Shown here is a 157-nucleotide RNA from Campylobacter blaseri, a member of the family "Bacterial antisense RNA HPnc0260". Taxonomically the source falls in Campylobacter (Bacteria, Epsilonproteobacteria, Campylobacterales, Campylobacteraceae).
RNA sequence: AGUUGCAAAUUUUCUAAUUUCAGAGAUACUACUUUUAAUACAUCAUUUGCCUUGCUUUUUAAAAUAUUUGAUAGAAUUUGGUAUUUCUUCUGUGAAUUUUCUAAUUUUCUUGAAGCAAUGGUGGCUCCGAUUGGACUUGAACCAACGACCCCCACCA
Numbered sequence: 001a002g003u004u005g006c007a008a009a010u011u012u013u014c015u016a017a018u019u020u021c022a023g024a025g026a027u028a029c030u031a032c033u034u035u036u037a038a039u040a041c042a043u044c045a046u047u048u049g050c051c052u053u054g055c056u057u058u059u060u061a062a063a064a065u066a067u068u069u070g071a072u073a074g075a076a077u078u079u080g081g082u083a084u085u086u087c088u089u090c091u092g093u094g095a096a097u098u099u100u101c102u103a104a105u106u107u108u109c110u111u112g113a114a115g116c117a118a119u120g121g122u123g124g125c126u127c128c129g130a131u132u133g134g135a136c137u138u139g140a141a142c143c144a145a146c147g148a149c150c151c152c153c154a155c156c157a
Stems, first nucleotide, its partner, number of pairs: 023044001027040002030037001068081002119154003123150002128147002131145004

For this family Rfam cites "The primary transcriptome of the major human pathogen Helicobacter pylori" (Sharma et al., Nature, 2010).